[Rfam]
RNA sequence: GCAGUCACGCCGUUUGUGACUGAAAGCUCACAGUUGUGGGUGCAUCAACCUAAGAAGGAAGAGAUCGAUG
Numbered sequence: 001g002c003a004g005u006c007a008c009g010c011c012g013u014u015u016g017u018g019a020c021u022g023a024a025a026g027c028u029c030a031c032a033g034u035u036g037u038g039g040g041u042g043c044a045u046c047a048a049c050c051u052a053a054g055a056a057g058g059a060a061g062a063g064a065u066c067g068a069u070g
Stems, first nucleotide, its partner, number of pairs: 002022008026041005